[Rfam]
A member of the RNA family "SAM (S-adenosyl methionine) riboswitch aptamer" from Sphaerimonospora thailandensis, 116 nucleotides long.
RNA sequence: GGUCAUGAGUGCCAGCGCCAAGCCCCGGCUCGCUGGCCGGCAACCCUCGCGUCCGCGGCGGGGUGCCCCGGGUGAGGACCGGGUUCGGCACGAGGUGUGCCGGACAAGCGCGGGCU
Numbered sequence: 001g002g003u004c005a006u007g008a009g010u011g012c013c014a015g016c017g018c019c020a021a022g023c024c025c026c027g028g029c030u031c032g033c034u035g036g037c038c039g040g041c042a043a044c045c046c047u048c049g050c051g052u053c054c055g056c057g058g059c060g061g062g063g064u065g066c067c068c069c070g071g072g073u074g075a076g077g078a079c080c081g082g083g084u085u086c087g088g089c090a091c092g093a094g095g096u097g098u099g100c101c102g103g104a105c106a107a108g109c110g111c112g113g114g115c116u
Stems, first nucleotide, its partner, number of pairs: 001080004009038001011037006021030002039067003044063003048058001050057001083105010
Dot-bracket structure: ((((....(.((((((....((......)).)))))))(((..(((.(.(......))..))).))).........))))..((((((((((...))))))))))...........
The source organism's lineage runs through Bacteria, Actinomycetes, Streptosporangiales, Streptosporangiaceae and Sphaerimonospora. Gene Ontology terms of the family: regulation of gene expression and S-adenosylmethionine metabolic process. Pairs were carried over by alignment from the consensus structure, which is taken from published work. A search with the family's covariance model found it, with a score of 101 bits. Rfam describes the family as follows. SAM-IV is a mRNA element that regulates gene expression via direct sensing of S-adenosylmethionine (SAM or AdoMet). SAM-IV riboswitches share conserved nucleotide positions with the previously described SAM-I riboswitches sequence analysis and molecular recognition experiments suggest that SAM-I and SAM-IV riboswitches share similar ligand binding sites, but have different scaffolds.